This 77-nucleotide RNA from Drosophila grimshawi belongs to the Rfam family "Small nucleolar RNA CD11". Rfam's curators put it in the seed alignment. The family has 26 seed sequences and 53 matches in Rfam 15.1. Rfam links the family to the GO terms RNA processing and nucleolus.
[Rfam]
RNA sequence: CUGAAAAAUUAUGAUGAUUGAUUUUGGCGGAAGAGUUCUUGAAGACUAAAUUCAUCACCCAAGACUGACUUUGAAAU
Numbered sequence: 001c002u003g004a005a006a007a008a009u010u011a012u013g014a015u016g017a018u019u020g021a022u023u024u025u026g027g028c029g030g031a032a033g034a035g036u037u038c039u040u041g042a043a044g045a046c047u048a049a050a051u052u053c054a055u056c057a058c059c060c061a062a063g064a065c066u067g068a069c070u071u072u073g074a075a076a077u
Stems, first nucleotide, its partner, number of pairs: 001073001003071001030038003